[Rfam]
RNA sequence: CUUCUCUCAGCUCUGCUGGAUCACACAAACAACAGUGUGUGCUUGGCGUAUUUUUGGGAGAGAGAGGAAGGCCCUCCUAAUGCACGACAGACCUGCCCCAAAGUGGCCUCUCUGUUCCUAGGGUGCAACAGUU
Number, nucleotide and partner (000 for none) at each position: 001c000002u066003u065004c064005u063006c062007u061008c060009a000010g000011c058012u057013c056014u000015g054016c000017u000018g000019g044020a043021u000022c041023a040024c039025a038026c037027a000028a000029a000030c000031a000032a000033c000034a000035g000036u000037g026038u025039g024040u023041g022042c000043u020044u019045g000046g000047c000048g000049u000050a000051u000052u000053u000054u015055u000056g013057g012058g011059a000060g008061a007062g006063a005064g004065a003066g002067g000068a000069a000070g000071g000072c000073c000074c123075u000076c122077c121078u120079a000080a119081u000082g117083c000084a000085c000086g000087a000088c000089a113090g112091a111092c000093c000094u000095g107096c106097c105098c000099c000100a000101a000102a000103g000104u000105g097106g096107c095108c000109u000110c000111u091112c090113u089114g000115u000116u000117c082118c000119u080120a078121g077122g076123g074124u000125g000126c000127a000128a000129c000130a000131g000132u000133u000

Shown here is a 133-nucleotide RNA sequence from Heterocephalus glaber, a member of the family "Small nucleolar RNA SNORA64/SNORA10 family". A reference for the family is Narayanan et al. (1999), "Nucleolar localization signals of box H/ACA small nucleolar RNAs", EMBO J. From the family's description: This family belongs to the H/ACA class of small nucleolar RNAs (snoRNAs) which act as guides in the the modification of uridines to pseudouridines. This family includes the human snoRNAs U64 and ACA10 and mouse MBI-29.